[Rfam]
Rfam assigns this 97-nucleotide RNA from Nicotiana attenuata to the family "MIR6152 microRNA precursor family". NCBI's taxonomy places the organism under Eukaryota, Magnoliopsida, eudicotyledons, Pentapetalae, Nicotiana. The match comes from Rfam's covariance-model search (71 bits). Rfam links the family to the GO terms miRNA-mediated post-transcriptional gene silencing and RISC complex.
RNA sequence: UGGACAGAUUACUGUAGUCGACUGUAUUCAUGACGUGAAACAGGGGAUUACACUGUUUUUAAACGGAAAGUGUAUCAAUUAACAUAAUUUGUAUUUU
Number, nucleotide and partner (000 for none) at each position: 001u000002g096003g095004a094005c000006a000007g000008a000009u091010u000011a088012c000013u086014g085015u084016a000017g000018u081019c000020g080021a079022c000023u077024g076025u000026a075027u074028u000029c072030a071031u070032g000033a000034c065035g064036u063037g059038a058039a057040a056041c055042a054043g053044g000045g000046g000047a000048u000049u000050a000051c000052a000053c043054u042055g041056u040057u039058u038059u037060u000061a000062a000063a036064c035065g034066g000067a000068a000069a000070g031071u030072g029073u000074a027075u026076c024077a023078a000079u021080u020081a018082a000083c000084a015085u014086a013087a000088u011089u000090u000091g009092u000093a000094u004095u003096u002097u000